[Rfam]
RNA sequence: UCCCGCGGGCGGAAACGCUGGCGGGAAGUCAGCAGAAGUCAUAGUAGUGCGAGGACAAGCCGGGGGCGUUCAGUCGCCCGUUUAAACUGGGAAUACCGGAAACCUUGAUGAACACGAAGGAC
Numbered sequence: 001u002c003c004c005g006c007g008g009g010c011g012g013a014a015a016c017g018c019u020g021g022c023g024g025g026a027a028g029u030c031a032g033c034a035g036a037a038g039u040c041a042u043a044g045u046a047g048u049g050c051g052a053g054g055a056c057a058a059g060c061c062g063g064g065g066g067c068g069u070u071c072a073g074u075c076g077c078c079c080g081u082u083u084a085a086a087c088u089g090g091g092a093a094u095a096c097c098g099g100a101a102a103c104c105u106u107g108a109u110g111a112a113c114a115c116g117a118a119g120g121a122c
Stems, first nucleotide, its partner, number of pairs: 001025002004023003008019004029036002038122003047115003
Shown here is a 122-nucleotide RNA from Termitidicoccus mucosus, a member of the family "Group II catalytic intron D1-D4-1". Group II introns are found in rRNA, tRNA and mRNA of organelles in fungi, plants and protists, and also in mRNA in bacteria.